[Rfam]
RNA: tRNA
Organism: Hyphodiscus hymeniophilus
RNA sequence: AAGGUUAUAGCUUAACUGGUAGAGCAAGCUGCUCAUGACAGCUUAGAUGAGUGUUCAAAUCACUCUGGCCUUA
Dot-bracket structure: (((((((..((((........)))).(((((.......))))).....(((((.......)))))))))))).